[Rfam]
A member of the RNA family "Small nucleolar RNA SNORA47" from Danio rerio, 133 nucleotides long. NCBI's taxonomy places the organism under Eukaryota, Metazoa, Otomorpha, Cypriniformes, Danio. On this family, see Huttenhofer et al., EMBO J 2001: "RNomics: an experimental approach that identifies 201 candidates for novel, small, non-messenger RNAs in mouse". Its family is annotated with nucleolus and RNA processing in the Gene Ontology. Pairs were carried over by alignment from the consensus structure, which was predicted with WAR.
RNA sequence: AGGAGGAUUGAGAAAGUUAGGCAGCUGUUUUAGUACUGCAUUAACUGGUUAUAACCUCCUAGAAAAAAACACAAGUGCUCAAAGUGCUCUUUCAUUCUGUGUGUAAAAGUAGUCGAGUUCUUGUGGACAUGUU
Numbered sequence: 001a002g003g004a005g006g007a008u009u010g011a012g013a014a015a016g017u018u019a020g021g022c023a024g025c026u027g028u029u030u031u032a033g034u035a036c037u038g039c040a041u042u043a044a045c046u047g048g049u050u051a052u053a054a055c056c057u058c059c060u061a062g063a064a065a066a067a068a069a070c071a072c073a074a075g076u077g078c079u080c081a082a083a084g085u086g087c088u089c090u091u092u093c094a095u096u097c098u099g100u101g102u103g104u105a106a107a108a109g110u111a112g113u114c115g116a117g118u119u120c121u122u123g124u125g126g127a128c129a130u131g132u133u
Base pairs, nucleotide, nucleotide: 002059003058004057005056006055015046016045017044018043019041021039022038023037024036078125080123083121084120086118087117088116095111097109098108